[Rfam]
Nucleotides: 153
Stems, first nucleotide, its partner, number of pairs: 004150007017029003031133002033122002035067004062120002070098002102118005124136003
Number, partner (000 for none) and nucleotide at each position: 001000c002000c003000g004150c005149g006148u007147c008146u009145u010144c011000a012000g013000g014000g015000c016000g017029g018028g019027g020000c021000g022000g023000a024000a025000u026000u027019c028018c029017c030000c031133a032132c033122c034121g035067g036066c037065g038064g039000u040000a041000g042000g043000c044000g045000c046000g047000g048000g049000g050000a051000a052000a053000c054000c055000c056000g057000c058000g059000c060000g061000a062120g063119c064038c065037c066036g067035c068000g069000a070098g071097c072000g073000c074000c075000g076000g077000u078000g079000g080000u081000u082000u083000c084000g085000g086000c087000c088000a089000c090000c091000g092000g093000g094000u095000c096000a097071g098070c099000a100000g101000a102118g103117c104116c105115a106114g107000u108000c109000g110000a111000a112000u113000g114106c115105u116104g117103g118102c119063g120062c121034c122033g123000a124136c125135g126134g127000u128000c129000a130000c131000a132032g133031u134126c135125c136124g137000g138000a139000u140000g141000a142000a143000a144010g145009a146008a147007g148006a149005u150004g151000g152000c153000a